[Rfam]
RNA sequence: CCAGUACAAGGGCAAUCCCGGGUGAAAGCCUGGGUGCGCAAAGCCGUGGGGCCUGAAGUACGGCCGGCCGUGGUUGCCGUG
Numbered sequence: 001c002c003a004g005u006a007c008a009a010g011g012g013c014a015a016u017c018c019c020g021g022g023u024g025a026a027a028g029c030c031u032g033g034g035u036g037c038g039c040a041a042a043g044c045c046g047u048g049g050g051g052c053c054u055g056a057a058g059u060a061c062g063g064c065c066g067g068c069c070g071u072g073g074u075u076g077c078c079g080u081g
Stems, first nucleotide, its partner, number of pairs: 012039002017034006042075004047070003050065003
Overview:
The family of this 81-nucleotide sequence from Vitiosangium sp. GDMCC 1.1324 is "c-di-GMP-I riboswitch aptamer". Taxonomically the source falls in Vitiosangium (Bacteria, Pseudomonadati, Myxococcales, Cystobacterineae). The family is grouped with related families in Rfam's "c-di-GMP_I riboswitch clan".